[Rfam]
RNA sequence: GCUCGUCAGGACCUUGGCUCUAGACUGCUUACUGCUCCGGGUGAGAGAGGCACAGUAACAGUCUACAGUCAUGGCCACUGACGUCUG
Numbered sequence: 001g002c003u004c005g006u007c008a009g010g011a012c013c014u015u016g017g018c019u020c021u022a023g024a025c026u027g028c029u030u031a032c033u034g035c036u037c038c039g040g041g042u043g044a045g046a047g048a049g050g051c052a053c054a055g056u057a058a059c060a061g062u063c064u065a066c067a068g069u070c071a072u073g074g075c076c077a078c079u080g081a082c083g084u085c086u087g
Base pairs, nucleotide, nucleotide: 012074013073015071016070017069018068023063024062025061026060027059029058030057031056032055033054

The family of this 87-nucleotide RNA from Laticauda laticaudata is "mir-132 microRNA precursor family". Gene Ontology terms of the family: miRNA-mediated post-transcriptional gene silencing and RISC complex. The family has 50 seed sequences and 1,023 matches in Rfam 15.1. The family's consensus secondary structure was predicted with RNAalifold.